[Rfam]
Overview: che1 RNA: a 99-nucleotide RNA sequence from Streptomyces tsukubensis. The family's RNA type in Rfam is small RNA.
RNA sequence: UGGACAGGGGGGUCCCCGCUACCCGGUGGGGCCUGUCCGGCAGGUUGCGCGAAGUGCCUGAAGGCGCAGCCAGUGGUUGUCGCUCGGGGGUGAUCGCCG
Numbered sequence: 001u002g003g004a005c006a007g008g009g010g011g012g013u014c015c016c017c018g019c020u021a022c023c024c025g026g027u028g029g030g031g032c033c034u035g036u037c038c039g040g041c042a043g044g045u046u047g048c049g050c051g052a053a054g055u056g057c058c059u060g061a062a063g064g065c066g067c068a069g070c071c072a073g074u075g076g077u078u079g080u081c082g083c084u085c086g087g088g089g090g091u092g093a094u095c096g097c098c099g
Base pairs, nucleotide, nucleotide: 001039002038003037004036005035006034007033008032014031015030016029017028018027019026020025043071044070045069046068047067048066049065050064